A member of the RNA family "Antisense RNA which regulates isiA expression" from Vanilla planifolia, 201 nucleotides long. It scores 56 bits against the family's covariance model. The family's consensus secondary structure was predicted with PFOLD. On this family, see Duhring et al., Proc Natl Acad Sci U S A 2006: "An internal antisense RNA regulates expression of the photosynthesis gene isiA". NCBI's taxonomy places the organism under Eukaryota, Streptophyta, Embryophyta, Spermatophyta, Vanilla.
[Rfam]
RNA sequence: GCUUCCCGAUCAAUGCAAUGGGAUUUGUUUAUUUAUCUAUCUCUUGCUCUCCCUUUAAGUGCCUAGGUAUGAUGCAUGCCUCCAACAUGCAGUGCCUUGAGUACUAGAAAGAAAGCGCCUAUACUUAAUAUAAUUAAGUGAAUCUCCAAACGAAUAUUUCUUAAUAACAUUAAUAUUUUUAAGUGUUUUUAGAUCAUUCAU
Numbered sequence: 001g002c003u004u005c006c007c008g009a010u011c012a013a014u015g016c017a018a019u020g021g022g023a024u025u026u027g028u029u030u031a032u033u034u035a036u037c038u039a040u041c042u043c044u045u046g047c048u049c050u051c052c053c054u055u056u057a058a059g060u061g062c063c064u065a066g067g068u069a070u071g072a073u074g075c076a077u078g079c080c081u082c083c084a085a086c087a088u089g090c091a092g093u094g095c096c097u098u099g100a101g102u103a104c105u106a107g108a109a110a111g112a113a114a115g116c117g118c119c120u121a122u123a124c125u126u127a128a129u130a131u132a133a134u135u136a137a138g139u140g141a142a143u144c145u146c147c148a149a150a151c152g153a154a155u156a157u158u159u160c161u162u163a164a165u166a167a168c169a170u171u172a173a174u175a176u177u178u179u180u181a182a183g184u185g186u187u188u189u190u191a192g193a194u195c196a197u198u199c200a201u
Base pairs, nucleotide, nucleotide: 137198138197139196140195141194145192148189149188